[Rfam]
RNA sequence: CGGCUGUAGCGAAAUAAAAUCGAUCUUUCGAUUUCAGAAGUUUACUGGCCGGUUGUUGUGAGAUUUUAUUCUCUGUCGACAGAUCUGCUUACCGAGCUUCUUACAUUC
Numbered sequence: 001c002g003g004c005u006g007u008a009g010c011g012a013a014a015u016a017a018a019a020u021c022g023a024u025c026u027u028u029c030g031a032u033u034u035c036a037g038a039a040g041u042u043u044a045c046u047g048g049c050c051g052g053u054u055g056u057u058g059u060g061a062g063a064u065u066u067u068a069u070u071c072u073c074u075g076u077c078g079a080c081a082g083a084u085c086u087g088c089u090u091a092c093c094g095a096g097c098u099u100c101u102u103a104c105a106u107u108c
Base pairs, nucleotide, nucleotide: 036101037100038099039098040097041096042095047089048088049087051085052084053083054082055080056079057078058077